The family of this 73-nucleotide RNA from Plasmodium gonderi is "small nucleolar RNA snoR17". Rfam classes the family as a C/D-box small nucleolar RNA.

[Rfam]
RNA sequence: UUUUUUAUGAUGAAAAUAAAAAUGACUGAUCAAGUUUGAUGAUUUUCGCUAUUUCACCAAGAUCUCUGAAAAA
Numbered sequence: 001u002u003u004u005u006u007a008u009g010a011u012g013a014a015a016a017u018a019a020a021a022a023u024g025a026c027u028g029a030u031c032a033a034g035u036u037u038g039a040u041g042a043u044u045u046u047c048g049c050u051a052u053u054u055c056a057c058c059a060a061g062a063u064c065u066c067u068g069a070a071a072a073a
Stems, first nucleotide, its partner, number of pairs: 002073004

The match comes from Rfam's covariance-model search (74 bits). The organism belongs to Plasmodium, within Eukaryota. For this family Rfam cites "Structural RNAs of known and unknown function identified in malaria parasites by comparative genomics and RNA analysis" (Chakrabarti et al., RNA, 2007).